[Rfam]
Background: Small nucleolar RNA snoR31/Z110/Z27: a 96-nucleotide RNA sequence from Populus trichocarpa. The family's consensus secondary structure was predicted with PFOLD. The family's RNA type in Rfam is C/D-box small nucleolar RNA. For this family Rfam cites "Identification of 66 box C/D snoRNAs in Arabidopsis thaliana: extensive gene duplications generated multiple isoforms predicting new ribosomal RNA 2'-O-methylation sites" (Barneche et al., J Mol Biol, 2001). The family has 8 seed sequences and 571 matches in Rfam 15.1. The match comes from Rfam's covariance-model search (59 bits). About the family: This family contains several related snoRNAs including R31, Z27 and Z110.

RNA sequence: CAAAAGAGAUGAUGAAAUCAGAAAAUCUUAGGACACCUUCUGACACAGUACGAUGUUGUGCUGUGUAUGAGAAAGAUUUUCGUUUCUGAUCAUUUU
Numbered sequence: 001c002a003a004a005a006g007a008g009a010u011g012a013u014g015a016a017a018u019c020a021g022a023a024a025a026u027c028u029u030a031g032g033a034c035a036c037c038u039u040c041u042g043a044c045a046c047a048g049u050a051c052g053a054u055g056u057u058g059u060g061c062u063g064u065g066u067a068u069g070a071g072a073a074a075g076a077u078u079u080u081c082g083u084u085u086c087u088g089a090u091c092a093u094u095u096u
Base pairs, nucleotide, nucleotide: 002095003094004093006091007090041047042046